[Rfam]
RNA sequence: CACUCUGAGACGUGGGAGAGGACCAGCCGGUUCACAGCAGGGCUGUGCACCGGCUGGUCCUCUCCCACGUCUCAGAGUG
Numbered sequence: 001c002a003c004u005c006u007g008a009g010a011c012g013u014g015g016g017a018g019a020g021g022a023c024c025a026g027c028c029g030g031u032u033c034a035c036a037g038c039a040g041g042g043c044u045g046u047g048c049a050c051c052g053g054c055u056g057g058u059c060c061u062c063u064c065c066c067a068c069g070u071c072u073c074a075g076a077g078u079g
Stems, first nucleotide, its partner, number of pairs: 001079009012068002017063015033047005

Shown here is a 79-nucleotide sequence from Amphibalanus amphitrite, a member of the family "Epstein-Barr virus stable intronic sequence RNA 2". The literature on the family includes a 2014 paper in RNA Biol by Moss et al., "RNA families in Epstein-Barr virus". Taxonomically the source falls in Amphibalanus (Eukaryota, Opisthokonta, Arthropoda, Amphibalaninae). The family's RNA type in Rfam is non-coding RNA gene. The pairing is the family consensus, mapped onto this sequence.